[Rfam]
Notes: A member of the RNA family "23S methyl RNA motif" from Limosilactobacillus reuteri, 107 nucleotides long. The family's RNA type in Rfam is cis-regulatory element. The source organism's lineage runs through Bacteria, Bacillati, Bacillota, Limosilactobacillus and Limosilactobacillus reuteri.

RNA sequence: UCGUUUGAUAAUUGACAUCGAAUAUAAGUGUUUCGUUGGUAAUUAUCAAGGAGUACUUCAUUAAAGCAGCGUUUCGCCGUGCCCACACCGAGACCCUGCUUUUUUUA
Numbered sequence: 001u002c003g004u005u006u007g008a009u010a011a012u013u014g015a016c017a018u019c020g021a022a023u024a025u026a027a028g029u030g031u032u033u034c035g036u037u038g039g040u041a042a043u044u045a046u047c048a049a050g051g052a053g054u055a056c057u058u059c060a061u062u063a064a065a066g067c068a069g070c071g072u073u074u075c076g077c078c079g080u081g082c083c084c085a086c087a088c089c090g091a092g093a094c095c096c097u098g099c100u101u102u103u104u105u106u107a
Base pairs, nucleotide, nucleotide: 002051004050005049006048007047008046009045010044011043012042013041014040016038017037019035020034021033022032063102064101065100066099067098068097069096071094072093073092074091075090076089079088080087081086